The record is a 108-nucleotide sequence from Aquibacillus halophilus, which matches "SAM riboswitch aptamer (S box leader)" in Rfam. It scores 99 bits against the family's covariance model.

[Rfam]
RNA sequence: UUCUUAUCAAGAGAAGCCGAGGGUACUGGCCCGUUGAAGCUUCAGCAACCUCUGACAUGUUCAGAAAGGUGCUAAUUCCAGCAAGGAUUUUUUCUUGAAAGAUAAGAG
Numbered sequence: 001u002u003c004u005u006a007u008c009a010a011g012a013g014a015a016g017c018c019g020a021g022g023g024u025a026c027u028g029g030c031c032c033g034u035u036g037a038a039g040c041u042u043c044a045g046c047a048a049c050c051u052c053u054g055a056c057a058u059g060u061u062c063a064g065a066a067a068g069g070u071g072c073u074a075a076u077u078c079c080a081g082c083a084a085g086g087a088u089u090u091u092u093u094c095u096u097g098a099a100a101g102a103u104a105a106g107a108g
Base pairs, nucleotide, nucleotide: 001108002107003106004105005104006103007102008101013043014042015041016040017039021032022031023030026081027080028079029078044073045072046071047070049069050068051065052064053063054062077100082097083096084095085094086093087092
Dot-bracket structure: ((((((((....(((((...(((..[[[[)))......)))))((((.((((((.......))))..))))))...(]]]]((((((....))))))..)))))))))